[Rfam]
RNA sequence: GGGUUUCGGUUGCACUUGCAGCCGGGAGGUUUUUUGCAUUGGUCGGGCCGCCAGUG
Numbered sequence: 001g002g003g004u005u006u007c008g009g010u011u012g013c014a015c016u017u018g019c020a021g022c023c024g025g026g027a028g029g030u031u032u033u034u035u036g037c038a039u040u041g042g043u044c045g046g047g048c049c050g051c052c053a054g055u056g
Stems, first nucleotide, its partner, number of pairs: 005026008037056007
The record is a 56-nucleotide RNA from Lampropedia cohaerens, which matches "nhaA-I RNA" in Rfam.
The organism belongs to Lampropedia, within Bacteria.
It is annotated as a riboswitch.
Acidobacteria, Alphaproteobacteria, Betaproteobacteria and Gammaproteobacteria, Verrucomicrobia, cand. division NC10.
A search with the family's covariance model found it, with a score of 49 bits.